[Rfam]
RNA sequence: CGAACCGUGACGGGAGAGUCCCGCCCCAGCCUGGCGGCGGGGGCGGGCGCCGAAGGAGCAACCUCCCCGGGAAUCUCUCAGGCCCACGUACCGCCACGGUGAG
Numbered sequence: 001c002g003a004a005c006c007g008u009g010a011c012g013g014g015a016g017a018g019u020c021c022c023g024c025c026c027c028a029g030c031c032u033g034g035c036g037g038c039g040g041g042g043g044c045g046g047g048c049g050c051c052g053a054a055g056g057a058g059c060a061a062c063c064u065c066c067c068c069g070g071g072a073a074u075c076u077c078u079c080a081g082g083c084c085c086a087c088g089u090a091c092c093g094c095c096a097c098g099g100u101g102a103g
Stems, first nucleotide, its partner, number of pairs: 006098004011093003020047008049083003052079002056077003062070002
A member of the RNA family "Glycine riboswitch aptamer" from Cellulomonas carbonis, 103 nucleotides long. Rfam's curators write: This family represents the bacterial glycine riboswitch. It scores 64 bits against the family's covariance model. The family is grouped with related families in Rfam's "Glycine riboswitch clan". The organism belongs to Cellulomonas carbonis, within Bacteria.